[Rfam]
RNA sequence: AGGAUCAAGUGGAGGUGUGAUCUCUUCACUUUUUUUGCUUAAAGUGAGAUUCAACUCCUCCAACUUAAUUCC
Numbered sequence: 001a002g003g004a005u006c007a008a009g010u011g012g013a014g015g016u017g018u019g020a021u022c023u024c025u026u027c028a029c030u031u032u033u034u035u036u037g038c039u040u041a042a043a044g045u046g047a048g049a050u051u052c053a054a055c056u057c058c059u060c061c062a063a064c065u066u067a068a069u070u071c072c
Stems, first nucleotide, its partner, number of pairs: 007066003010062005017056001018054001023049002026047006
Shown here is a 72-nucleotide sequence from Chrysodeixis includens, a member of the family "mir-1175 microRNA precursor family". The match comes from Rfam's covariance-model search (76 bits). NCBI's taxonomy places the organism under Eukaryota, Protostomia, Pancrustacea, Panorpida, Chrysodeixis. Its family is annotated with miRNA-mediated post-transcriptional gene silencing and RISC complex in the Gene Ontology.